[Rfam]
RNA sequence: CGCACGAUAUCGGGAGAGCCUGUUCAGGAAAUCGACCCCGCGCAGCGCCGAAGGAGCAACCGCCCCGGAAACUCUCAGGCAAAAGGACCGAUAUUGUUUC
Numbered sequence: 001c002g003c004a005c006g007a008u009a010u011c012g013g014g015a016g017a018g019c020c021u022g023u024u025c026a027g028g029a030a031a032u033c034g035a036c037c038c039c040g041c042g043c044a045g046c047g048c049c050g051a052a053g054g055a056g057c058a059a060c061c062g063c064c065c066c067g068g069a070a071a072c073u074c075u076c077a078g079g080c081a082a083a084a085g086g087a088c089c090g091a092u093a094u095u096g097u098u099u100c
Stems, first nucleotide, its partner, number of pairs: 006095008020045004047080003050076002054074003060068002

The record is a 100-nucleotide RNA from Janthinobacterium agaricidamnosum, which matches "Glycine riboswitch aptamer" in Rfam. Its Rfam clan is "Glycine riboswitch clan". NCBI's taxonomy places the organism under Bacteria, Pseudomonadati, Pseudomonadota, Burkholderiales, Janthinobacterium agaricidamnosum. Rfam describes the family as follows. This family represents the bacterial glycine riboswitch. The pairing is the family consensus, mapped onto this sequence. The match comes from Rfam's covariance-model search (66 bits).